[Rfam]
Fluoride riboswitch aptamer (crcB RNA motif): a 73-nucleotide sequence from Flexivirga caeni. The source organism's lineage runs through Bacteria, Bacillati, Micrococcales, Dermacoccaceae and Flexivirga.
RNA sequence: GUGACAGCUGGUGAUGGAGCCCGCCCGCGAAUUUCGCGAACCGCCACCCGUGGCUGAUGGCACCUUCGAUCGA
Number, nucleotide and partner (000 for none) at each position: 001g000002u000003g000004a000005c000006a000007g000008c000009u000010g025011g024012u023013g022014a000015u000016g064017g063018a000019g061020c060021c059022c013023g012024c011025c010026c000027g000028c000029g000030a000031a000032u000033u000034u000035c000036g000037c000038g000039a000040a000041c000042c000043g054044c053045c052046a051047c000048c000049c000050g000051u046052g045053g044054c043055u000056g000057a000058u000059g021060g020061c019062a000063c017064c016065u000066u000067c000068g000069a000070u000071c000072g000073a000